[Rfam]
RNA sequence: UUGAAGAAUUUGAAGUCUUUAACUUGUAGACUUGAUGAAUUUGAACACUUCAUCAUGCAGACUUGGAGAUUUUUGAAGACUUCAAGU
Number, nucleotide and partner (000 for none) at each position: 001u085002u084003g083004a082005a081006g080007a000008a000009u077010u076011u075012g074013a073014a072015g000016u000017c068018u067019u066020u065021a064022a000023c000024u000025u059026g058027u057028a056029g000030a000031c000032u000033u052034g051035a050036u000037g048038a000039a000040u000041u000042u000043g000044a000045a000046c000047a000048c037049u000050u035051c034052a033053u000054c000055a000056u028057g027058c026059a025060g000061a000062c000063u000064u021065g020066g019067a018068g017069a000070u000071u000072u014073u013074u012075g011076a010077a009078g000079a000080c006081u005082u004083c003084a002085a001086g000087u000
Shown here is an 87-nucleotide RNA sequence from Solanum commersonii, a member of the family "MIR8024 microRNA precursor family". Rfam 15.1 lists 661 matches to the family in 8 species. NCBI's taxonomy places the organism under Eukaryota, Streptophytina, Magnoliopsida, Pentapetalae, Solanum.